Actinobacteria sRNA Ms_IGR-5: a 181-nucleotide sequence from Mycobacterium simulans.
RNA sequence: ACACAGGGAAGGAGGUGGUCCGCGAAAUUGAUAACUUCAUGGACAUGUGAGGUGGCUGCGCGCUAGCAGCAGUAGCUCGGAAGAGCUGGCGACAACGCGCGCUGGCGAAUUCCCCGCAGCCACCCGGCCCCCGAGUUUCCGGUCUGUCCCACCGGCCAAAAGCGCUCGGGGGCCGUUCCAU
Numbered sequence: 001a002c003a004c005a006g007g008g009a010a011g012g013a014g015g016u017g018g019u020c021c022g023c024g025a026a027a028u029u030g031a032u033a034a035c036u037u038c039a040u041g042g043a044c045a046u047g048u049g050a051g052g053u054g055g056c057u058g059c060g061c062g063c064u065a066g067c068a069g070c071a072g073u074a075g076c077u078c079g080g081a082a083g084a085g086c087u088g089g090c091g092a093c094a095a096c097g098c099g100c101g102c103u104g105g106c107g108a109a110u111u112c113c114c115c116g117c118a119g120c121c122a123c124c125c126g127g128c129c130c131c132c133g134a135g136u137u138u139c140c141g142g143u144c145u146g147u148c149c150c151a152c153c154g155g156c157c158a159a160a161a162g163c164g165c166u167c168g169g170g171g172g173c174c175g176u177u178c179c180a181u
Base pairs, nucleotide, nucleotide: 015059016058017057018056019055061107062106063105064104065103066102067101069100070099125175126174127173128172129171130170131169132168133167134166135165136164139155140154141153142152143151
Overview:
The literature on the family includes a 2013 paper in RNA by Li et al., "Identification of small RNAs in Mycobacterium smegmatis using heterologous Hfq". The base pairs follow the family's consensus structure. By type it is a small RNA.